[Rfam]
Notes: A member of the RNA family "mir-1302 microRNA precursor family" from Nyctereutes procyonoides, 52 nucleotides long. A search with the family's covariance model found it, with a score of 66 bits.
RNA sequence: GUUUUAGUAGAGGUAUGUCCCAUGCAAUAUUUGGGACAUAUCUCUACUUAAA
Numbered sequence: 001g002u003u004u005u006a007g008u009a010g011a012g013g014u015a016u017g018u019c020c021c022a023u024g025c026a027a028u029a030u031u032u033g034g035g036a037c038a039u040a041u042c043u044c045u046a047c048u049u050a051a052a
Stems, first nucleotide, its partner, number of pairs: 006048007014040003018036004022031001
The literature on the family includes a 2008 paper in Genome Res by Morin et al., "Application of massively parallel sequencing to microRNA profiling and discovery in human embryonic stem cells".
The source organism's lineage runs through Eukaryota, Craniata, Mammalia, Carnivora and Nyctereutes.
The family's consensus secondary structure was predicted with WAR.